[Rfam]
This 92-nucleotide RNA from Paracidovorax anthurii belongs to the Rfam family "c-di-GMP-I riboswitch aptamer". Rfam 15.1 lists 5,092 matches to the family in 1,772 species. From the family's description: GEMM was predicted in a large-scale screen for bacterial structured RNA regulatory elements. The source organism's lineage runs through Bacteria, Betaproteobacteria, Burkholderiales, Comamonadaceae and Paracidovorax. The match comes from Rfam's covariance-model search (52 bits).
RNA sequence: AUCCAAACAGGGCUCACCCGCGCGAAAGCCGGGGUCGCAAAGCCUCCGGUCUAUAGGGUCUUUUCGAGGGCCACGAUAGCGGGGCUGCACGG
Numbered sequence: 001a002u003c004c005a006a007a008c009a010g011g012g013c014u015c016a017c018c019c020g021c022g023c024g025a026a027a028g029c030c031g032g033g034g035u036c037g038c039a040a041a042g043c044c045u046c047c048g049g050u051c052u053a054u055a056g057g058g059u060c061u062u063u064u065c066g067a068g069g070g071c072c073a074c075g076a077u078a079g080c081g082g083g084g085c086u087g088c089a090c091g092g
Stems, first nucleotide, its partner, number of pairs: 012038002017033004022029002041086004046082003049077003056071001059068001